The record is a 127-nucleotide RNA sequence from Carlito syrichta, which matches "Small nucleolar RNA SNORA11" in Rfam.
The literature on the family includes a 2005 paper in Nucleic Acids Res by Gu et al., "A novel experimental approach for systematic identification of box H/ACA snoRNAs from eukaryotes".
It is annotated as an H/ACA-box small nucleolar RNA.
From the family's description: U107 (SNORA11) is a member of the H/ACA class of snoRNAs that guide the sites of modification of uridines to pseudouridines. This snoRNA was identified by RT-PCR from blood cells and its expression confirmed by Northern blot analysis. There is no predicted target for this guide snRNA.
[Rfam]
RNA sequence: UGGGUGUGUUCAGAGCAGGGGCCUGAAGAAAGGCUUCUCUGCUCAGAACACACCUAACAAGAACCUCAGGCCACUGUGACCAGGGGCACAAAGCUUGUGGUCUCCUAUAAACAAGUGCCCGAUGUGU
Numbered sequence: 001u002g003g004g005u006g007u008g009u010u011c012a013g014a015g016c017a018g019g020g021g022c023c024u025g026a027a028g029a030a031a032g033g034c035u036u037c038u039c040u041g042c043u044c045a046g047a048a049c050a051c052a053c054c055u056a057a058c059a060a061g062a063a064c065c066u067c068a069g070g071c072c073a074c075u076g077u078g079a080c081c082a083g084g085g086g087c088a089c090a091a092a093g094c095u096u097g098u099g100g101u102c103u104c105c106u107a108u109a110a111a112c113a114a115g116u117g118c119c120c121g122a123u124g125u126g127u
Stems, first nucleotide, its partner, number of pairs: 002055007013044008021034003069119003075113003083103003087099005